[Rfam]
Rfam assigns this 429-nucleotide sequence from Alteripontixanthobacter maritimus to the family "Bacterial RNase P class A". It is annotated as a ribozyme.
RNA sequence: CCAGGGGGCCGGGCAGCCGCGUUGGAGUUCGCUCCACCGAGGAAAGUCCGGGCUCCACGAAACAAGGGUGGCGGGUAACGCCCGCCGGGCGCUUCGCAAGAGGCGUUCAGGGACAGUGCCACAGAGAGCAGACCGCCUGCGGGUUUCGAUCCAAGGGUAAGGGUGAAAGGGUGCGGUAAGAGCGCACCGGGGAUGCGGCAACGUAUCCCGCACGGCAAACCCCACCCGGAGCAAGGCCGAAUAGGGACGGCGCGGGGGCCUUCGGGCUCGCAGGGGUGUUUCGCCCCUCGUGCAAACGGCGACCGUCCGGGUUGGCUGCUGGAGCGGCGGAGCAAUCCGCCGCCUAGAUGAAUGGCUGCCAUUGCAGAUACGGUCCGGUUUCGGAUACCGUCUGUGAUACAGAACCCGGCUUACAGGCCCCCUGGUAUU
Number, nucleotide and partner (000 for none) at each position: 001c425002c424003a423004g422005g421006g420007g419008g418009c417010c416011g414012g360013g359014c358015a357016g356017c355018c354019g000020c039021g038022u000023u036024g035025g034026a033027g032028u000029u000030c000031g000032c027033u026034c025035c024036a023037c000038c021039g020040a000041g000042g000043a000044a412045a411046g410047u000048c409049c408050g407051g406052g405053c231054u230055c229056c228057a000058c000059g000060a000061a000062a000063c000064a000065a000066g227067g226068g225069u224070g223071g085072c084073g083074g082075g081076u000077a000078a000079c000080g000081c075082c074083c073084g072085c071086c110087g108088g107089g106090c105091g104092c103093u102094u101095c100096g000097c000098a000099a000100g095101a094102g093103g092104c091105g090106u089107u088108c087109a000110g086111g222112g221113a000114c000115a000116g220117u219118g216119c215120c214121a000122c000123a000124g000125a000126g000127a000128g000129c000130a000131g000132a000133c162134c161135g158136c157137c156138u000139g000140c000141g152142g151143g150144u149145u000146u000147c000148g000149a144150u143151c142152c141153a000154a000155g000156g137157g136158u135159a000160a000161g134162g133163g000164u000165g000166a000167a000168a000169g000170g188171g187172u186173g185174c184175g183176g000177u000178a000179a000180g000181a000182g000183c175184g174185c173186a172187c171188c170189g211190g209191g208192g207193a206194u205195g204196c203197g202198g000199c000200a000201a000202c197203g196204u195205a194206u193207c192208c191209c190210g000211c189212a000213c000214g120215g119216c118217a000218a000219a117220c116221c112222c111223c070224a069225c068226c067227c066228g056229g055230a054231g053232c000233a000234a000235g317236g316237c315238c314239g000240a000241a000242u000243a000244g000245g308246g307247a306248c305249g304250g303251c000252g000253c000254g000255g000256g000257g000258g000259c000260c000261u000262u000263c000264g000265g000266g000267c000268u000269c000270g000271c000272a000273g000274g000275g000276g000277u000278g000279u000280u000281u000282c000283g000284c000285c000286c301287c000288u299289c298290g297291u000292g000293c000294a000295a000296a000297c290298g289299g288300c000301g286302a000303c250304c249305g248306u247307c246308c245309g000310g000311g000312u000313u000314g238315g237316c236317u235318g000319c000320u000321g000322g000323a000324g343325c342326g341327g340328c339329g338330g337331a336332g000333c000334a000335a000336u331337c330338c329339g328340c327341c326342g325343c324344c000345u000346a000347g000348a000349u000350g000351a000352a000353u000354g018355g017356c016357u015358g014359c013360c012361a000362u000363u000364g000365c000366a000367g000368a000369u000370a000371c000372g000373g000374u000375c000376c000377g000378g000379u000380u000381u000382c000383g000384g000385a000386u000387a000388c000389c000390g000391u000392c000393u000394g000395u000396g000397a000398u000399a000400c000401a000402g000403a000404a000405c052406c051407c050408g049409g048410c046411u045412u044413a000414c011415a000416g010417g009418c008419c007420c006421c005422c004423u003424g002425g001426u000427a000428u000429u000